[Rfam]
Rfam assigns this 427-nucleotide sequence from Bradyrhizobium diazoefficiens to the family "Bacterial RNase P class A". Rfam's curators write: Ribonuclease P (RNase P) is a ubiquitous endoribonuclease, found in archaea, bacteria and eukarya as well as chloroplasts and mitochondria.

RNA sequence: UCAGUCGGCCGGACGGCCGCUCCGGCAACGGUCGAAAGGCCGCCGGGGAGGAAAGUCCGGGCUCCCUUGACAUACGGUGCCGGAUAACGUCCGGCGGGGGCAACCCCAGGGAAAGUGCCACAGAGAACGAACCGCCCUGCUUCGCCUUCGGGCUUCGCUGGGUAAGGGUGAAAAGGUGCGGUAAGAGCGCACCGCGGCUGCGGCAACGGAGCCGGCAUGGUAAACCCCACCGGGAGCAAAACCGAAUAGGGACGGCGUAGCGGGCUGUUCGCGCAAGCGAUAACGCCGCGGGGCGAUGUCAGGCCCGCCGUCCGGGUAGGUUGCUCGAGGCCAUGUGCAAACAUGGCCCCAGAGGAAUGGCCGUCACGUAUCGUGCGCGCAAGCGAACGGUGCCCUACAGAACCCGGCUUACAGGCCGGCUGAUGUC
Numbered sequence: 001u002c003a004g005u006c007g008g009c010c011g012g013a014c015g016g017c018c019g020c021u022c023c024g025g026c027a028a029c030g031g032u033c034g035a036a037a038g039g040c041c042g043c044c045g046g047g048g049a050g051g052a053a054a055g056u057c058c059g060g061g062c063u064c065c066c067u068u069g070a071c072a073u074a075c076g077g078u079g080c081c082g083g084a085u086a087a088c089g090u091c092c093g094g095c096g097g098g099g100g101c102a103a104c105c106c107c108a109g110g111g112a113a114a115g116u117g118c119c120a121c122a123g124a125g126a127a128c129g130a131a132c133c134g135c136c137c138u139g140c141u142u143c144g145c146c147u148u149c150g151g152g153c154u155u156c157g158c159u160g161g162g163u164a165a166g167g168g169u170g171a172a173a174a175g176g177u178g179c180g181g182u183a184a185g186a187g188c189g190c191a192c193c194g195c196g197g198c199u200g201c202g203g204c205a206a207c208g209g210a211g212c213c214g215g216c217a218u219g220g221u222a223a224a225c226c227c228c229a230c231c232g233g234g235a236g237c238a239a240a241a242c243c244g245a246a247u248a249g250g251g252a253c254g255g256c257g258u259a260g261c262g263g264g265c266u267g268u269u270c271g272c273g274c275a276a277g278c279g280a281u282a283a284c285g286c287c288g289c290g291g292g293g294c295g296a297u298g299u300c301a302g303g304c305c306c307g308c309c310g311u312c313c314g315g316g317u318a319g320g321u322u323g324c325u326c327g328a329g330g331c332c333a334u335g336u337g338c339a340a341a342c343a344u345g346g347c348c349c350c351a352g353a354g355g356a357a358u359g360g361c362c363g364u365c366a367c368g369u370a371u372c373g374u375g376c377g378c379g380c381a382a383g384c385g386a387a388c389g390g391u392g393c394c395c396u397a398c399a400g401a402a403c404c405c406g407g408c409u410u411a412c413a414g415g416c417c418g419g420c421u422g423a424u425g426u427c
Base pairs, nucleotide, nucleotide: 001423002422003421004420005419006418007417008416009415010414011412012365013364014363015362016361017360018359020048021047022046023045024044025043026042053410054409055408057407058406059405060404061403062236063235064234065233075232076231077230078229079228080094081093082092083091084090095109096107097106098105099104110227111226115225116224117221118220119219132167133166134163135162136161137160139158140157175193176192177191178190179189180188194216195214196213197212198211199210201208202207240322241321242320243319250313251312252311253310254309255308291306292305293304294303329348330347331346332345333344334343335342336341

The organism belongs to Bradyrhizobium diazoefficiens, within Bacteria.